[Rfam]
RNA sequence: CUAAAUUUCGGCUUCGCUGGAAUCCUUCCCCACCUGUUGCUAUAGCUCAAAACACCCUGCCGAUACAUGGCAUAACAACACGCAGCGUCAAACACGUUGCCAUAACGCAUGCAAACAGGGAGACACAUCGCAAUGCACAC
Number, nucleotide and partner (000 for none) at each position: 001c000002u000003a000004a000005a000006u000007u000008u000009c000010g000011g000012c000013u120014u119015c118016g000017c000018u000019g029020g028021a027022a000023u000024c000025c000026u000027u021028c020029c019030c000031c000032a000033c000034c000035u000036g000037u000038u109039g108040c107041u000042a000043u000044a000045g000046c000047u000048c000049a000050a000051a000052a000053c000054a000055c000056c000057c000058u072059g071060c070061c069062g068063a000064u000065a000066c000067a000068u062069g061070g060071c059072a058073u000074a000075a000076c000077a000078a000079c000080a000081c000082g100083c099084a098085g097086c096087g000088u000089c000090a000091a000092a000093c000094a000095c000096g086097u085098u084099g083100c082101c000102a000103u000104a000105a000106c000107g040108c039109a038110u000111g000112c000113a000114a000115a000116c000117a000118g015119g014120g013121a000122g000123a000124c000125a000126c000127a000128u000129c000130g000131c000132a000133a000134u000135g000136c000137a000138c000139a000140c000
RNA: opuB ncRNA motif